[Rfam]
RNA: ctRNA
Organism: Endobacterium cereale
RNA sequence: AGGAAAGCUUCCGUAACGGUGACGUUCGGGGGCUUUUCUUUUGC
Dot-bracket structure: ....((((((((..((((....)))).)))))))).........
Numbered sequence: 001a002g003g004a005a006a007g008c009u010u011c012c013g014u015a016a017c018g019g020u021g022a023c024g025u026u027c028g029g030g031g032g033c034u035u036u037u038c039u040u041u042u043g044c
Stems, first nucleotide, its partner, number of pairs: 005035008015026004